[Rfam]
RNA: int-alpA RNA
Organism: Elioraea tepida
RNA sequence: GGCGCGGCUAGGUUUGGCCGCCGAAAGCCGAGACUCCGACUCGGUUGCCGCGCCGACCAACCCUUCGGA
Number, nucleotide and partner (000 for none) at each position: 001g054002g053003c052004g051005c050006g049007g048008c047009u000010a000011g022012g021013u020014u000015u000016g000017g000018c000019c000020g013021c012022c011023g000024a000025a000026a000027g000028c044029c043030g042031a041032g040033a000034c000035u068036c067037c000038g065039a064040c032041u031042c030043g029044g028045u000046u000047g008048c007049c006050g005051c004052g003053c002054c001055g000056a000057c000058c000059a000060a000061c000062c000063c000064u039065u038066c000067g036068g035069a000